Description: Shown here is a 102-nucleotide RNA from Callithrix jacchus, a member of the family "Y RNA". Y RNAs are components of the Ro ribonucleoprotein particle (Ro RNP), in association with Ro60 and La proteins. The Y RNAs and Ro60 and La proteins are well conserved, but the function of the Ro RNP is not known. It is annotated as a non-coding RNA gene. NCBI's taxonomy places the organism under Eukaryota, Opisthokonta, Simiiformes, Platyrrhini, Callithrix. A search with the family's covariance model found it, with a score of 53 bits.
[Rfam]
Nucleotides: 102
Stems, first nucleotide, its partner, number of pairs: 001098006008091001010090002018079003022076001028064003032060002
Number, partner (000 for none) and nucleotide at each position: 001098g002097g003096c004095u005094g006093g007000c008091c009000c010090a011089g012000g013000u014000a015000c016000c017000c018079u019078g020077g021000u022076g023000u024000u025000u026000a027000c028064a029063a030062c031000u032060a033059a034000u035000u036000g037000u038000u039000c040000a041000c042000a043000g044000c045000c046000a047000g048000u049000u050000a051000c052000a053000g054000a055000u056000u057000u058000c059033u060032u061000u062030g063029u064028u065000c066000c067000u068000u069000u070000u071000c072000c073000a074000c075000u076022c077020c078019c079018a080000c081000u082000g083000c084000u085000u086000c087000a088000c089011u090010u091008g092000a093006c094005u095004a096003g097002c098001c099000u100000a101000a102000a